[Rfam]
RNA sequence: UCCUUAUCAAGAGUUAGGGUAGAGAAUUAGCUCUAUGACCCUACGCCAACCUGCCAUUAGGUAAGGUGGUUCUGCUAAUGCCGAUAAGAU
Numbered sequence: 001u002c003c004u005u006a007u008c009a010a011g012a013g014u015u016a017g018g019g020u021a022g023a024g025a026a027u028u029a030g031c032u033c034u035a036u037g038a039c040c041c042u043a044c045g046c047c048a049a050c051c052u053g054c055c056a057u058u059a060g061g062u063a064a065g066g067u068g069g070u071u072c073u074g075c076u077a078a079u080g081c082c083g084a085u086a087a088g089a090u
Base pairs, nucleotide, nucleotide: 003088004087005086006085007084008083013044015043016042017041018040022033023032024031028077029076030075045070046069047068048067050066051065052063053062054061055060074082

Rfam assigns this 90-nucleotide RNA from Tissierella praeacuta to the family "SAM riboswitch aptamer (S box leader)". The source organism's lineage runs through Bacteria, Tissierellia, Tissierellales, Tissierellaceae and Tissierella praeacuta. The match comes from Rfam's covariance-model search (45 bits). Gene Ontology term of the family: regulation of gene expression.